Shown here is a 70-nucleotide RNA from Charadrius vociferus, a member of the family "mir-153 microRNA precursor family". The family has 63 seed sequences and 1,565 matches in Rfam 15.1.
RNA sequence: UCUGUCUUCAUUUUUGUGAUUUGCAGCUAGUAAUCUGGCUCCAGUUGCAUAGUCACAAUGUGAUCGUGGC
Number, nucleotide and partner (000 for none) at each position: 001u000002c069003u068004g067005u066006c000007u000008u063009c062010a061011u060012u000013u000014u058015u057016g056017u055018g054019a053020u052021u000022u049023g048024c047025a046026g045027c044028u043029a000030g000031u000032a000033a000034u000035c000036u000037g000038g000039c000040u000041c000042c000043a028044g027045u026046u025047g024048c023049a022050u000051a000052g020053u019054c018055a017056c016057a015058a014059u000060g011061u010062g009063a008064u000065c000066g005067u004068g003069g002070c000

The match comes from Rfam's covariance-model search (54 bits).